[Rfam]
RNA: Lysine riboswitch aptamer
Organism: Bacillus sp. FJAT-49736
RNA sequence: AAAAGUGAUAGAGGCGCAAAACUUAUCAGUAAGAGCUUUGAGAAAAGUGAGUUUCGAUGAAAAGCUGUGAAAGGAAGUUUUGCCGAAGUGGAAAUUGACUCAUUUCAAAUUCUGCUGGUUCUGCAUUUAAUAAGUGUAGAAUUGUCAAGGUGUAUAUAACAUCUUGGAGAGCUAUCUCGUCU
Numbered sequence: 001a002a003a004a005g006u007g008a009u010a011g012a013g014g015c016g017c018a019a020a021a022c023u024u025a026u027c028a029g030u031a032a033g034a035g036c037u038u039u040g041a042g043a044a045a046a047g048u049g050a051g052u053u054u055c056g057a058u059g060a061a062a063a064g065c066u067g068u069g070a071a072a073g074g075a076a077g078u079u080u081u082g083c084c085g086a087a088g089u090g091g092a093a094a095u096u097g098a099c100u101c102a103u104u105u106c107a108a109a110u111u112c113u114g115c116u117g118g119u120u121c122u123g124c125a126u127u128u129a130a131u132a133a134g135u136g137u138a139g140a141a142u143u144g145u146c147a148a149g150g151u152g153u154a155u156a157u158a159a160c161a162u163c164u165u166g167g168a169g170a171g172c173u174a175u176c177u178c179g180u181c182u
Stems, first nucleotide, its partner, number of pairs: 007176005016083009032068001034066006087116007095108004117143011145167007